Shown here is a 73-nucleotide RNA from Artemisia annua, a member of the family "tRNA".
The match comes from Rfam's covariance-model search (65 bits).
The family's RNA type in Rfam is transfer RNA.
The base pairs follow the family's consensus structure, which is taken from published work.
RNA sequence: CCGACCAUAGCUCAGUUGGAAGAGCGGGGGACUGUAGAUCCCCAGGUUAUCGGUUUGAAUCCGGUUGGUCGGA
Numbered sequence: 001c002c003g004a005c006c007a008u009a010g011c012u013c014a015g016u017u018g019g020a021a022g023a024g025c026g027g028g029g030g031a032c033u034g035u036a037g038a039u040c041c042c043c044a045g046g047u048u049a050u051c052g053g054u055u056u057g058a059a060u061c062c063g064g065u066u067g068g069u070c071g072g073a
Stems, first nucleotide, its partner, number of pairs: 001072007010025004027043005049065005